[Rfam]
RNA sequence: AUAUUAGAUAGAGGCGCGAAUUGUUAAGAAGUUUUUACCAUAAGAUGCAAACCAGGUAAAAAGGGAGGAGCGUUCGCCGAAGAGAUAAAUGAUUGCAUGCGUUUAUCCUCUGGGCUUAUAGUGAAGAUCUAUAAGACUGUCAUUAUCAAUAGAUAAUGGUGAGCUAUCAUUGUU
Numbered sequence: 001a002u003a004u005u006a007g008a009u010a011g012a013g014g015c016g017c018g019a020a021u022u023g024u025u026a027a028g029a030a031g032u033u034u035u036u037a038c039c040a041u042a043a044g045a046u047g048c049a050a051a052c053c054a055g056g057u058a059a060a061a062a063g064g065g066a067g068g069a070g071c072g073u074u075c076g077c078c079g080a081a082g083a084g085a086u087a088a089a090u091g092a093u094u095g096c097a098u099g100c101g102u103u104u105a106u107c108c109u110c111u112g113g114g115c116u117u118a119u120a121g122u123g124a125a126g127a128u129c130u131a132u133a134a135g136a137c138u139g140u141c142a143u144u145a146u147c148a149a150u151a152g153a154u155a156a157u158g159g160u161g162a163g164c165u166a167u168c169a170u171u172g173u174u
Stems, first nucleotide, its partner, number of pairs: 007168005016077006023071003032062008081111003084107008112138002115135007140159007

The record is a 174-nucleotide sequence from Thomasclavelia ramosa, which matches "Lysine riboswitch aptamer" in Rfam. Its family is annotated with lysine biosynthetic process in the Gene Ontology. It scores 93 bits against the family's covariance model. The base pairs follow the family's consensus structure, which is taken from published work. The source organism's lineage runs through Bacteria, Bacillati, Erysipelotrichales, Coprobacillaceae and Thomasclavelia ramosa.